[Rfam]
RNA: mir-551 microRNA precursor family
Organism: Salvator merianae
RNA sequence: AUACCUUGGAAAUCAAGAAUGGGUAGAACCUGUACGUACCAAAUGUAGGCGACCCACACUUGGUUUCAAAGGUCA
Numbered sequence: 001a002u003a004c005c006u007u008g009g010a011a012a013u014c015a016a017g018a019a020u021g022g023g024u025a026g027a028a029c030c031u032g033u034a035c036g037u038a039c040c041a042a043a044u045g046u047a048g049g050c051g052a053c054c055c056a057c058a059c060u061u062g063g064u065u066u067c068a069a070a071g072g073u074c075a
Stems, first nucleotide, its partner, number of pairs: 003073005009067006016060002021055004029049003